The record is an 86-nucleotide RNA from Oryzias latipes, which matches "let-7 microRNA precursor family" in Rfam. Rfam describes the family as follows. This family represents the microRNAs (miRNA) let-7 and mir-98. let-7 was identified from a study of developmental timing in C. elegans, and was later shown to be part of a much larger class of non-coding RNAs termed miRNAs.

RNA sequence: ACAGGGUGAGGUAGUAGGUUGUGUGGUUUCAGGGUUGUGAUUUUACCCCAUAAGGAGCUAACUAUACAACCUACUGCCUUCCCUGG
Numbered sequence: 001a002c003a004g005g006g007u008g009a010g011g012u013a014g015u016a017g018g019u020u021g022u023g024u025g026g027u028u029u030c031a032g033g034g035u036u037g038u039g040a041u042u043u044u045a046c047c048c049c050a051u052a053a054g055g056a057g058c059u060a061a062c063u064a065u066a067c068a069a070c071c072u073a074c075u076g077c078c079u080u081c082c083c084u085g086g
Base pairs, nucleotide, nucleotide: 002085003084004083005082006081008080009079010078011077012076013075014074015073016072017071018070019069020068021067022066023065024064025063026062027061032048033047034046035045051056
Its family is annotated with miRNA-mediated post-transcriptional gene silencing and RISC complex in the Gene Ontology.